RNA: Streptomyces RNA 1601
Organism: Streptomyces sp. DJ
RNA sequence: AUUGACCGGCCGGCCACUCACGUGCCCGGCCCGCAAGUGGAGGCUCCGAUCUCCCACCUGACCGACCGCACAGGUCGGCGGGUUCCGGUCGACGGCCCCCGUCGCAAGGCGGAGCGGCUGUUCUUGCGCCCCGUGGGAACAACACGGUGGUGCUCCCGGUUGUGAGGAGCCCCGCCUGUGUCCCGUACGGGGCGUUUUCG
Numbered sequence: 001a002u003u004g005a006c007c008g009g010c011c012g013g014c015c016a017c018u019c020a021c022g023u024g025c026c027c028g029g030c031c032c033g034c035a036a037g038u039g040g041a042g043g044c045u046c047c048g049a050u051c052u053c054c055c056a057c058c059u060g061a062c063c064g065a066c067c068g069c070a071c072a073g074g075u076c077g078g079c080g081g082g083u084u085c086c087g088g089u090c091g092a093c094g095g096c097c098c099c100c101g102u103c104g105c106a107a108g109g110c111g112g113a114g115c116g117g118c119u120g121u122u123c124u125u126g127c128g129c130c131c132c133g134u135g136g137g138a139a140c141a142a143c144a145c146g147g148u149g150g151u152g153c154u155c156c157c158g159g160u161u162g163u164g165a166g167g168a169g170c171c172c173c174g175c176c177u178g179u180g181u182c183c184c185g186u187a188c189g190g191g192g193c194g195u196u197u198u199c200g
Stems, first nucleotide, its partner, number of pairs: 004090006012027002028084005034060002037057004041052002062078006091118001093116001095115001099112005128193006134185003143180003146176005152170005